[Rfam]
RNA sequence: UUUAAUCUUCAGGGCAGGGUGAAAUUCCCGAUCGGCGGUAAAGUCCGCGAGCGAAAUGGUACUUUGUAAGAGCAGUAAGAGUACGAUUGAGCAGGAACUGGUGAGAUUCCAGUACCGACAGUAUAGUCUGGAUGGAAGAAGAGAAUA
Numbered sequence: 001u002u003u004a005a006u007c008u009u010c011a012g013g014g015c016a017g018g019g020u021g022a023a024a025u026u027c028c029c030g031a032u033c034g035g036c037g038g039u040a041a042a043g044u045c046c047g048c049g050a051g052c053g054a055a056a057u058g059g060u061a062c063u064u065u066g067u068a069a070g071a072g073c074a075g076u077a078a079g080a081g082u083a084c085g086a087u088u089g090a091g092c093a094g095g096a097a098c099u100g101g102u103g104a105g106a107u108u109c110c111a112g113u114a115c116c117g118a119c120a121g122u123a124u125a126g127u128c129u130g131g132a133u134g135g136a137a138g139a140a141g142a143g144a145a146u147a
Base pairs, nucleotide, nucleotide: 003145006142007141008140009139010138017029018028019027031127032126033117034116035048036047037046038045043115044114051092052091097113098112099111100110101109119130120129121128
RNA: FMN riboswitch aptamer (RFN element)